The family of this 199-nucleotide RNA from Loxodonta africana is "Small nucleolar RNA SNORA74". Lineage of the source: Eukaryota > Vertebrata > Dipnotetrapodomorpha > Mammalia > Loxodonta. The family has 24 seed sequences and 1,348 matches in Rfam 15.1. From the family's description: U19 belongs to the H/ACA class of snoRNAs. snoRNAs bind a number of proteins (including dyskerin, Gar1p and Nop10p in the case of the H/ACA class) to form snoRNP complexes. Pairs were carried over by alignment from the consensus structure, which was predicted with PFOLD.
RNA sequence: CCCAAUGGUUGUCAGCUAUCCAGGCUAGUGUGAUGCCUGGGGUGGUGUUACACUGUUGGGAGAACAAGUGCUGCCUUUGUUGAGGUCUGGCUCCAAGCACUGUUUUGGUGUUGAGGUUAGUACCUUUCGGUAGCAUUUGCACCUCUGAGAGUGGAGUGACUCCUCCUGUGGAGUUGGUCCUAGUCUGGGUGCAAACAAU
Numbered sequence: 001c002c003c004a005a006u007g008g009u010u011g012u013c014a015g016c017u018a019u020c021c022a023g024g025c026u027a028g029u030g031u032g033a034u035g036c037c038u039g040g041g042g043u044g045g046u047g048u049u050a051c052a053c054u055g056u057u058g059g060g061a062g063a064a065c066a067a068g069u070g071c072u073g074c075c076u077u078u079g080u081u082g083a084g085g086u087c088u089g090g091c092u093c094c095a096a097g098c099a100c101u102g103u104u105u106u107g108g109u110g111u112u113g114a115g116g117u118u119a120g121u122a123c124c125u126u127u128c129g130g131u132a133g134c135a136u137u138u139g140c141a142c143c144u145c146u147g148a149g150a151g152u153g154g155a156g157u158g159a160c161u162c163c164u165c166c167u168g169u170g171g172a173g174u175u176g177g178u179c180c181u182a183g184u185c186u187g188g189g190u191g192c193a194a195a196c197a198a199u
Base pairs, nucleotide, nucleotide: 001060002059003058004057005056006055007054008053009052011051012050015046016045017044018043019042020041021039022038023037024036025035068136069135070134071133072132073131074130075129082126083125084124085123086122087120088119089118090117091116092115094113095112096111098110099109100108101107137194138193139192140191141190142189143188144187153180154179155178157176158175159174160173161172162171163170